The record is a 493-nucleotide RNA from Camelus dromedarius, which matches "FGF-2 internal ribosome entry site (IRES)" in Rfam.
This family represents the fibroblast growth factor 2 (FGF-2) internal ribosome entry site (IRES).
The literature on the family includes a 2000 paper in J Cell Biol by Creancier et al., "Fibroblast growth factor 2 internal ribosome entry site (IRES) activity ex vivo and in transgenic mice reveals a stringent tissue-specific regulation".

RNA sequence: CUGCGGCCAAAGCUCCCGACCCAGAGGCCGGCCCCAGAAUACCCAGGGCGAGUAGGGGGCGGCGCGCUGGGAGGGGGGAGGGCCGGGGGCGUGGGAGGGCUGGUGGGCGUUGGGGGUGGAGAUGUUAGUGUGGACGCCGCGGCCCGGCCGGUGCCAGACCAGCGGACGCGGUACCCGCGGUUGCAACCACAUCCGGCUCUGCAGCUUGGGUAGGCGCCCUUCCGAGACAGCGGCCGCGGAGACACCCAGCCCUAACCCCCAGCUCCAGGCGCUGGGCUCACCGAGCUCUAGGGCCGGCGGAGAGGGAAGCAGCGGAACAGCGCGAGGCUGGGGGCCCGCGGGCGCGGGGCCGCGUGCCGGGGGUGGGAGGCUGGGGGGGCCGGGGCCGGGGGCCGCGCCUCGGAGCGCGUUCGGAGGCCGGGGCCGGGGGGCGGCGGCUCCCCGCUCAGCUCCUGGGGCUCGGGAAUCCCGGCAGGGCCCUGGUGGGGCCAUG
Numbered sequence: 001c002u003g004c005g006g007c008c009a010a011a012g013c014u015c016c017c018g019a020c021c022c023a024g025a026g027g028c029c030g031g032c033c034c035c036a037g038a039a040u041a042c043c044c045a046g047g048g049c050g051a052g053u054a055g056g057g058g059g060c061g062g063c064g065c066g067c068u069g070g071g072a073g074g075g076g077g078g079a080g081g082g083c084c085g086g087g088g089g090c091g092u093g094g095g096a097g098g099g100c101u102g103g104u105g106g107g108c109g110u111u112g113g114g115g116g117u118g119g120a121g122a123u124g125u126u127a128g129u130g131u132g133g134a135c136g137c138c139g140c141g142g143c144c145c146g147g148c149c150g151g152u153g154c155c156a157g158a159c160c161a162g163c164g165g166a167c168g169c170g171g172u173a174c175c176c177g178c179g180g181u182u183g184c185a186a187c188c189a190c191a192u193c194c195g196g197c198u199c200u201g202c203a204g205c206u207u208g209g210g211u212a213g214g215c216g217c218c219c220u221u222c223c224g225a226g227a228c229a230g231c232g233g234c235c236g237c238g239g240a241g242a243c244a245c246c247c248a249g250c251c252c253u254a255a256c257c258c259c260c261a262g263c264u265c266c267a268g269g270c271g272c273u274g275g276g277c278u279c280a281c282c283g284a285g286c287u288c289u290a291g292g293g294c295c296g297g298c299g300g301a302g303a304g305g306g307a308a309g310c311a312g313c314g315g316a317a318c319a320g321c322g323c324g325a326g327g328c329u330g331g332g333g334g335c336c337c338g339c340g341g342g343c344g345c346g347g348g349g350c351c352g353c354g355u356g357c358c359g360g361g362g363g364u365g366g367g368a369g370g371c372u373g374g375g376g377g378g379g380c381c382g383g384g385g386c387c388g389g390g391g392g393c394c395g396c397g398c399c400u401c402g403g404a405g406c407g408c409g410u411u412c413g414g415a416g417g418c419c420g421g422g423g424c425c426g427g428g429g430g431g432c433g434g435c436g437g438c439u440c441c442c443c444g445c446u447c448a449g450c451u452c453c454u455g456g457g458g459c460u461c462g463g464g465a466a467u468c469c470c471g472g473c474a475g476g477g478c479c480c481u482g483g484u485g486g487g488g489c490c491a492u493g
Base pairs, nucleotide, nucleotide: 029382030381031380032379033378034377035376043366044365045364060359061358062357063356064355065354066353067352083262085260086259087258088257091253093251104248105247106246107245109243147178148177150175151174152173153172154171155170194236195235196234197233198232199230200229201228208223210222212220213219214218269323270322271321272320273319274298275295276294277293399409401407402406420481421480422479423478424477425476427473444461447458462470463469464468